[Rfam]
Nucleotides: 089
Base pairs, nucleotide, nucleotide: 023079024078025077026076027075028074029073030072035069036068037067038066040065041064042063043062048061049060050059051058052057
Number, partner (000 for none) and nucleotide at each position: 001000u002000g003000u004000u005000g006000a007000a008000a009000u010000u011000g012000g013000a014000a015000a016000a017000u018000c019000c020000g021000c022000a023079c024078a025077u026076a027075u028074g029073u030072c031000g032000a033000c034000a035069c036068a037067u038066u039000a040065c041064u042063c043062u044000g045000g046000g047000u048061g049060c050059c051058u052057a053000g054000c055000a056000a057052u058051a059050g060049g061048u062043g063042g064041a065040g066038a067037a068036u069035g070000c071000g072030g073029a074028c075027a076026u077025a078024u079023g080000g081000a082000g083000g084000c085000c086000u087000a088000a089000c
The family of this 89-nucleotide sequence from Acinetobacter larvae is "t44 RNA". This family consists of a number of bacterial RNA genes of between 135 and 170 bases in length. The t44 gene has been identified in several species of enteric bacteria but homologs have also been identified in Pseudomonas and Coxiella species. The literature on the family includes a 2002 paper in Nucleic Acids Res by Tjaden et al., "Transcriptome analysis of Escherichia coli using high-density oligonucleotide probe arrays". The base pairs follow the family's consensus structure, which was predicted with LocARNA. Lineage of the source: Bacteria > Pseudomonadati > Gammaproteobacteria > Moraxellaceae > Acinetobacter.